Source information: Rfam assigns this 96-nucleotide sequence from Pongo abelii to the family "Y RNA".
RNA sequence: GACUAGUCCUGUGGUAGUGGGUUAUCAGAACUUAUAAACCUUAGUGUCACUAAAGUUGGUAUACAACUCCCCCACUGCUAAAUUUGACUGGCUUAA
Numbered sequence: 001g002a003c004u005a006g007u008c009c010u011g012u013g014g015u016a017g018u019g020g021g022u023u024a025u026c027a028g029a030a031c032u033u034a035u036a037a038a039c040c041u042u043a044g045u046g047u048c049a050c051u052a053a054a055g056u057u058g059g060u061a062u063a064c065a066a067c068u069c070c071c072c073c074a075c076u077g078c079u080a081a082a083u084u085u086g087a088c089u090g091g092c093u094u095a096a
Base pairs, nucleotide, nucleotide: 003091004090005089006088007087008086011084015080016076017075018074019073020072021071033061034060035059037057038056
Dot-bracket structure: ..((((((..(...(((((((...........(((.((.................)).))).........))))))...)...).)))))).....
Lineage of the source: Eukaryota > Deuterostomia > Gnathostomata > Teleostomi > Pongo. Y RNAs are components of the Ro ribonucleoprotein particle (Ro RNP), in association with Ro60 and La proteins. The Y RNAs and Ro60 and La proteins are well conserved, but the function of the Ro RNP is not known. In humans the RNA component can be one of four small RNAs -- hY1, hY3, hY4 and hY5. These small RNAs are predicted to fold into a conserved secondary structure containing three stem structures. The family's consensus secondary structure is taken from published work.